[Rfam]
RNA: mir-276 microRNA precursor family
Organism: Phaedon cochleariae
RNA sequence: UAUCUGGUAGACCACUAGCGAGGUAUAGAGUUCCUACGUGACAUUUGGCUGUAGGAACUUCAUACCGUGCUCUUGGAUUUAUCUC
Numbered sequence: 001u002a003u004c005u006g007g008u009a010g011a012c013c014a015c016u017a018g019c020g021a022g023g024u025a026u027a028g029a030g031u032u033c034c035u036a037c038g039u040g041a042c043a044u045u046u047g048g049c050u051g052u053a054g055g056a057a058c059u060u061c062a063u064a065c066c067g068u069g070c071u072c073u074u075g076g077a078u079u080u081a082u083c084u085c
Stems, first nucleotide, its partner, number of pairs: 012076003017071004022066005028060010